[Rfam]
RNA sequence: GGACUGUGAUGAUUUCUGUGAUAAGGCUUCGUUCGUCGUAAUUGGCCAAAUCGUCCUUGCCGACUAUUCUUGCAAUAUCAGUACCCAGGUUCUGAGUCC
Numbered sequence: 001g002g003a004c005u006g007u008g009a010u011g012a013u014u015u016c017u018g019u020g021a022u023a024a025g026g027c028u029u030c031g032u033u034c035g036u037c038g039u040a041a042u043u044g045g046c047c048a049a050a051u052c053g054u055c056c057u058u059g060c061c062g063a064c065u066a067u068u069c070u071u072g073c074a075a076u077a078u079c080a081g082u083a084c085c086c087a088g089g090u091u092c093u094g095a096g097u098c099c
Base pairs, nucleotide, nucleotide: 001099002098003097004096048058049057
A member of the RNA family "Small nucleolar RNA Z43" from Phaseolus vulgaris, 99 nucleotides long. Gene Ontology terms of the family: RNA processing and nucleolus. The literature on the family includes a 2003 paper in Nucleic Acids Res by Chen et al., "The high diversity of snoRNAs in plants: identification and comparative study of 120 snoRNA genes from Oryza sativa". It is annotated as a C/D-box small nucleolar RNA.